RNA sequence: GAUGAACCUGCGCUUAAUUGCCGGGCCGCUGGGUCCGGGAAGCGGGGGAACCAAGUUUUUGGGGCGUAUCAUGUGAUCAUGUAGGGGACCAUCUACCCCGAGCCCGACAGCUAACCUCGUCAGCGGAAGAUGGGUCGGAGC
Numbered sequence: 001g002a003u004g005a006a007c008c009u010g011c012g013c014u015u016a017a018u019u020g021c022c023g024g025g026c027c028g029c030u031g032g033g034u035c036c037g038g039g040a041a042g043c044g045g046g047g048g049a050a051c052c053a054a055g056u057u058u059u060u061g062g063g064g065c066g067u068a069u070c071a072u073g074u075g076a077u078c079a080u081g082u083a084g085g086g087g088a089c090c091a092u093c094u095a096c097c098c099c100g101a102g103c104c105c106g107a108c109a110g111c112u113a114a115c116c117u118c119g120u121c122a123g124c125g126g127a128a129g130a131u132g133g134g135u136c137g138g139a140g141c
Base pairs, nucleotide, nucleotide: 011125012124013123014122018041019040042120043119044118045117046116047115052061053060062105063104064103070081071080072079073078084099085098086097087096

c-di-AMP riboswitch aptamer (ydaO/yuaA leader): a 141-nucleotide sequence from Paenibacillus mucilaginosus. NCBI's taxonomy places the organism under Bacteria, Bacillati, Paenibacillaceae, Paenibacillus, Paenibacillus mucilaginosus.